[Rfam]
Nucleotides: 092
Base pairs, nucleotide, nucleotide: 014048015047016046018045019044020043021042025038026037027036028035029034057091058090059089060088065087066086067085068084069083070082071081072080
Number, partner (000 for none) and nucleotide at each position: 001000u002000g003000a004000u005000a006000g007000c008000g009000u010000a011000g012000a013000a014048g015047c016046g017000u018045g019044a020043g021042g022000u023000u024000g025038c026037c027036a028035c029034c030000a031000u032000c033000u034029g035028g036027u037026g038025g039000g040000u041000u042021u043020u044019u045018c046016c047015g048014u049000g050000g051000a052000g053000c054000g055000a056000a057091u058090g059089u060088c061000a062000a063000g064000a065087g066086a067085c068084c069083g070082a071081a072080g073000a074000u075000c076000a077000g078000c079000a080072u081071u082070u083069c084068g085067g086066u087065c088060g089059g090058u091057a092000a

The family of this 92-nucleotide RNA from Clostridium sp. CAG:167 is "S10-Clostridia ribosomal protein leader". The source organism's lineage runs through Bacteria, Bacillati, Eubacteriales, Clostridiaceae and Clostridium.